[Rfam]
RNA sequence: ACAAUUAACUUACGAAAUCACACACGUAUCAUGAGAAGUAAAUCGGGGUGCCAAACGGUCGAUUUGCUUGAUAUGUGGAGGCUAAAC
Numbered sequence: 001a002c003a004a005u006u007a008a009c010u011u012a013c014g015a016a017a018u019c020a021c022a023c024a025c026g027u028a029u030c031a032u033g034a035g036a037a038g039u040a041a042a043u044c045g046g047g048g049u050g051c052c053a054a055a056c057g058g059u060c061g062a063u064u065u066g067c068u069u070g071a072u073a074u075g076u077g078g079a080g081g082c083u084a085a086a087c
Stems, first nucleotide, its partner, number of pairs: 023077008037068009050059003